[Rfam]
Nucleotides: 123
Stems, first nucleotide, its partner, number of pairs: 001123018020104001022102006030094005036088004041083002045079004
Number, partner (000 for none) and nucleotide at each position: 001123a002122a003121u004120a005119g006118g007117a008116g009115a010114a011113u012112g013111a014110u015109a016108a017107a018106u019000c020104a021000a022102a023101u024100u025099u026098u027097u028000u029000c030094u031093c032092c033091u034090g035000u036088u037087u038086u039085u040000c041083a042082g043000c044000u045079u046078u047077u048076u049000c050000c051000u052000c053000c054000u055000a056000a057000a058000a059000a060000a061000a062000u063000u064000u065000a066000a067000a068000u069000u070000c071000a072000a073000c074000u075000a076048a077047a078046a079045a080000u081000g082042c083041u084000a085039a086038a087037a088036a089000u090034c091033a092032g093031g094030a095000a096000g097027a098026a099025a100024a101023a102022u103000a104020u105000u106018a107017u108016u109015u110014g111013u112012c113011a114010u115009u116008c117007u118006c119005c120004u121003a122002u123001u